[Rfam]
RNA sequence: GUGGAAGGGGCAUGCAGAGGAGCAGGGGCUCUGAUUAGAAGCCAUGGCCAUGUGCUACCCUCGCUCGCCCUCCUGUGCCUUCCUCUUCCAUU
Numbered sequence: 001g002u003g004g005a006a007g008g009g010g011c012a013u014g015c016a017g018a019g020g021a022g023c024a025g026g027g028g029c030u031c032u033g034a035u036u037a038g039a040a041g042c043c044a045u046g047g048c049c050a051u052g053u054g055c056u057a058c059c060c061u062c063g064c065u066c067g068c069c070c071u072c073c074u075g076u077g078c079c080u081u082c083c084u085c086u087u088c089c090a091u092u
Stems, first nucleotide, its partner, number of pairs: 001091010012080001014078003018074005025068001
Shown here is a 92-nucleotide RNA from Dichanthelium oligosanthes, a member of the family "MIR528 microRNA precursor family".